[Rfam]
RNA: Transposase-2 RNA
RNA sequence: GAAGUGCGAACCAAGUGUCGGCGGAAACGUCGUGUCAGACUUGGAGCGGAUGCCCGCAAGGACACCCUGCA
Numbered sequence: 001g002a003a004g005u006g007c008g009a010a011c012c013a014a015g016u017g018u019c020g021g022c023g024g025a026a027a028c029g030u031c032g033u034g035u036c037a038g039a040c041u042u043g044g045a046g047c048g049g050a051u052g053c054c055c056g057c058a059a060g061g062a063c064a065c066c067c068u069g070c071a
Base pairs, nucleotide, nucleotide: 011044012043013042014041015040019032020031021030022029048067049066051064052063054061055060